The record is a 154-nucleotide RNA from Salvia splendens, which matches "U12 minor spliceosomal RNA" in Rfam. It scores 56 bits against the family's covariance model. The source organism's lineage runs through Eukaryota, eudicotyledons, lamiids, Nepetoideae and core Calosphace. The family's RNA type in Rfam is spliceosomal small nuclear RNA. Rfam 15.1 lists 2,106 matches to the family in 1,170 species. The literature on the family includes a 1997 paper in Trends Biochem Sci by Tarn and Steitz, "Pre-mRNA splicing: the discovery of a new spliceosome doubles the challenge".

[Rfam]
RNA sequence: UUACUAUAAACUAAUGAGUAAGGAAAACAAAGCGGAAGGUGAGAACCGGCCGCCGCAUCUCCUAUGAUGGUGCAUGAAUUUAUGGUGGGGUUCUAGGCUGGCCGCAGCGUAGACACUGCCUCUUUUGCAGAACUCACUCAGGCGGGCCUCCCAC
Numbered sequence: 001u002u003a004c005u006a007u008a009a010a011c012u013a014a015u016g017a018g019u020a021a022g023g024a025a026a027a028c029a030a031a032g033c034g035g036a037a038g039g040u041g042a043g044a045a046c047c048g049g050c051c052g053c054c055g056c057a058u059c060u061c062c063u064a065u066g067a068u069g070g071u072g073c074a075u076g077a078a079u080u081u082a083u084g085g086u087g088g089g090g091u092u093c094u095a096g097g098c099u100g101g102c103c104g105c106a107g108c109g110u111a112g113a114c115a116c117u118g119c120c121u122c123u124u125u126u127g128c129a130g131a132a133c134u135c136a137c138u139c140a141g142g143c144g145g146g147c148c149u150c151c152c153a154c
Stems, first nucleotide, its partner, number of pairs: 004023002007020002032053004038047002055073005087154001089152002095149005101143001104139001107137001109135001116130004